A member of the RNA family "Vault RNA" from Mytilus edulis, 104 nucleotides long. It scores 42 bits against the family's covariance model. It is annotated as a non-coding RNA gene. The source organism's lineage runs through Eukaryota, Metazoa, Spiralia, Mytilidae and Mytilus. Pairs were carried over by alignment from the consensus structure, which is taken from published work.

[Rfam]
RNA sequence: UGGCUGGCUUGGUCACGUGGAUACUUCGUUGAAAAACCUUUUCGUCACAUGAGAAAUCUUGCGGUUCAAGCCGCAGUCUUCCACCGACGCUAUCCAGUCUUUUU
Numbered sequence: 001u002g003g004c005u006g007g008c009u010u011g012g013u014c015a016c017g018u019g020g021a022u023a024c025u026u027c028g029u030u031g032a033a034a035a036a037c038c039u040u041u042u043c044g045u046c047a048c049a050u051g052a053g054a055a056a057u058c059u060u061g062c063g064g065u066u067c068a069a070g071c072c073g074c075a076g077u078c079u080u081c082c083a084c085c086g087a088c089g090c091u092a093u094c095c096a097g098u099c100u101u102u103u104u
Stems, first nucleotide, its partner, number of pairs: 002099006012088003017084004025070002028067001
Description:
This family of RNAs are found as part of the enigmatic vault ribonucleoprotein complex.